Rhodo-rpoB RNA: a 93-nucleotide sequence. By type it is a cis-regulatory element. The family's consensus secondary structure is taken from published work. Rfam's curators put it in the seed alignment.
RNA sequence: CGGUUCGAGAGCAAGCCAAUGGGAGGUUUGCGAGAAUAGACCAUGAUCCAGUUGCGUGUGCGAUGCAUUGCUGUGACCCCGACAGCCAAUGUG
Numbered sequence: 001c002g003g004u005u006c007g008a009g010a011g012c013a014a015g016c017c018a019a020u021g022g023g024a025g026g027u028u029u030g031c032g033a034g035a036a037u038a039g040a041c042c043a044u045g046a047u048c049c050a051g052u053u054g055c056g057u058g059u060g061c062g063a064u065g066c067a068u069u070g071c072u073g074u075g076a077c078c079c080c081g082a083c084a085g086c087c088a089a090u091g092u093g
Stems, first nucleotide, its partner, number of pairs: 002042003006039001011031007064093005070086004